[Rfam]
The record is a 371-nucleotide RNA sequence from Sphingomonas sp. ID1715, which matches "Alphaproteobacteria transfer-messenger RNA" in Rfam.
RNA sequence: GCCCUUGGCGUCUCGCACCCAAGCGCCUAUAUCGGUCGGUGCCGGGUUCGCCCGGCUAUGGCGAUAAACUGCGGCGUAUAAUAGGCGCAGCGGACCCGGGGGCAGUACCCGGCGGCUCCACCAGGUGAGCCGGUUGGCCGACACGCAUGAAGCGUGCCGGCCGAGCGGCUCAGCUAAUGGGGCCGAACCAGGAUCGACGUGUGUUGAAAAGCGCUGUUUUCGCCCGGAAUGGGACCACCGCAACGGCCCAUCACACAAGUGCCAACGAUAACGAGGCGCUCGCGAUUGCUGCUUAAUCCCAACCCUCACGGGUAAGAUUAAGUAGGCCAAAAGCGCGGUUCGGGCCGCACCGGGCAACAGAAGCGGAUUCC
Numbered sequence: 001g002c003c004c005u006u007g008g009c010g011u012c013u014c015g016c017a018c019c020c021a022a023g024c025g026c027c028u029a030u031a032u033c034g035g036u037c038g039g040u041g042c043c044g045g046g047u048u049c050g051c052c053c054g055g056c057u058a059u060g061g062c063g064a065u066a067a068a069c070u071g072c073g074g075c076g077u078a079u080a081a082u083a084g085g086c087g088c089a090g091c092g093g094a095c096c097c098g099g100g101g102g103c104a105g106u107a108c109c110c111g112g113c114g115g116c117u118c119c120a121c122c123a124g125g126u127g128a129g130c131c132g133g134u135u136g137g138c139c140g141a142c143a144c145g146c147a148u149g150a151a152g153c154g155u156g157c158c159g160g161c162c163g164a165g166c167g168g169c170u171c172a173g174c175u176a177a178u179g180g181g182g183c184c185g186a187a188c189c190a191g192g193a194u195c196g197a198c199g200u201g202u203g204u205u206g207a208a209a210a211g212c213g214c215u216g217u218u219u220u221c222g223c224c225c226g227g228a229a230u231g232g233g234a235c236c237a238c239c240g241c242a243a244c245g246g247c248c249c250a251u252c253a254c255a256c257a258a259g260u261g262c263c264a265a266c267g268a269u270a271a272c273g274a275g276g277c278g279c280u281c282g283c284g285a286u287u288g289c290u291g292c293u294u295a296a297u298c299c300c301a302a303c304c305c306u307c308a309c310g311g312g313u314a315a316g317a318u319u320a321a322g323u324a325g326g327c328c329a330a331a332a333g334c335g336c337g338g339u340u341c342g343g344g345c346c347g348c349a350c351c352g353g354g355c356a357a358c359a360g361a362a363g364c365g366g367a368u369u370c371c
Base pairs, nucleotide, nucleotide: 041056042055043054044053045052060224061223062222063221064220071217072216073215074214075213076212077211086203087202088201090200091199092198096112097111098110099109100108113185114184115183116182117181118180119179225240226239227238230250231249232248235246236245336352337351338350339349342369343368345366346365
NCBI's taxonomy places the organism under Bacteria, Pseudomonadota, Sphingomonadales, Sphingomonadaceae, Sphingomonas. Bacterial tmRNA, also known as 10Sa RNA or SsrA, is named for its dual tRNA and mRNA-like properties. Its role is to liberate the mRNA from a stalled ribosome. To accomplish this part of the tmRNA is used as a reading frame that ends in a translation stop signal. The broken mRNA is replaced in the ribosome by the tmRNA and translation of the tmRNA leads to addition of a proteolysis tag to the incomplete protein enabling recognition by a protease. Recently a number of permuted tmRNA genes have been found encoded in two parts. tmRNAs have been identified in eubacteria and some chloroplasts but are absent from archaeal and eukaryote nuclear genomes.